The family of this 236-nucleotide RNA sequence from Bugula neritina is "RNase MRP". Pairs were carried over by alignment from the consensus structure, which is taken from published work. Lineage of the source: Eukaryota > Bilateria > Lophotrochozoa > Bryozoa > Bugula.
RNA sequence: GACUGUGCGGAAGACCUACAUCGGAGAAUGAAAUCAUUAUCUCUGGGGAAAGUCCCCGGAUCUAGACCAGCGAGUGGUGUGCCGGCUAUCUGUACCAGCCAGCUGUCAGUCAGACCAUGCAAAGGCCAUGACUGUCCCAGACAAGAGCCUGUUUGAUGCAGCUGGUGUUCAUCGCAGCACAGUUAUGUAGGGUGUGUCAUGUACACAACCUCAAUGGGGCUUACUCUCUGCUCAGU
Numbered sequence: 001g002a003c004u005g006u007g008c009g010g011a012a013g014a015c016c017u018a019c020a021u022c023g024g025a026g027a028a029u030g031a032a033a034u035c036a037u038u039a040u041c042u043c044u045g046g047g048g049a050a051a052g053u054c055c056c057c058g059g060a061u062c063u064a065g066a067c068c069a070g071c072g073a074g075u076g077g078u079g080u081g082c083c084g085g086c087u088a089u090c091u092g093u094a095c096c097a098g099c100c101a102g103c104u105g106u107c108a109g110u111c112a113g114a115c116c117a118u119g120c121a122a123a124g125g126c127c128a129u130g131a132c133u134g135u136c137c138c139a140g141a142c143a144a145g146a147g148c149c150u151g152u153u154u155g156a157u158g159c160a161g162c163u164g165g166u167g168u169u170c171a172u173c174g175c176a177g178c179a180c181a182g183u184u185a186u187g188u189a190g191g192g193u194g195u196g197u198c199a200u201g202u203a204c205a206c207a208a209c210c211u212c213a214a215u216g217g218g219g220c221u222u223a224c225u226c227u228c229u230g231c232u233c234a235g236u
Base pairs, nucleotide, nucleotide: 002236003235004234005233007231008230009229010228011227015191016190017189018188019187021046022045023044024043025042026041027040050222051221052220054219055218056217057216066078067077068076069075079095080094081093082092098166099165100164101163102162103161104160105159106158110156111155112154113153123150124149125148126147133143134142135141136140194206195205196204197203